[Rfam]
RNA sequence: GGCGGUUCUCGGGUGACGCACCCUGGAAACGGGCUCCCUCCUCUCUGGUUCUGGGUGCAUCACCCAAGAACCACA
Numbered sequence: 001g002g003c004g005g006u007u008c009u010c011g012g013g014u015g016a017c018g019c020a021c022c023c024u025g026g027a028a029a030c031g032g033g034c035u036c037c038c039u040c041c042u043c044u045c046u047g048g049u050u051c052u053g054g055g056u057g058c059a060u061c062a063c064c065c066a067a068g069a070a071c072c073a074c075a
Stems, first nucleotide, its partner, number of pairs: 002074001005071005011065006019057005025052004030047004
Shown here is a 75-nucleotide RNA sequence from Myotis lucifugus, a member of the family "mir-9223 microRNA precursor family". The base pairs follow the family's consensus structure, which was predicted with RNAalifold. Rfam links the family to the GO terms miRNA-mediated post-transcriptional gene silencing and RISC complex. NCBI's taxonomy places the organism under Eukaryota, Metazoa, Eumetazoa, Laurasiatheria, Myotis.